[Rfam]
RNA sequence: AAUCAUCGAAGGAAUGCCUUAAUUCAUGAUU
Numbered sequence: 001a002a003u004c005a006u007c008g009a010a011g012g013a014a015u016g017c018c019u020u021a022a023u024u025c026a027u028g029a030u031u
Stems, first nucleotide, its partner, number of pairs: 001031006008025001009020004
RNA: S4-Flavobacteria ribosomal protein leader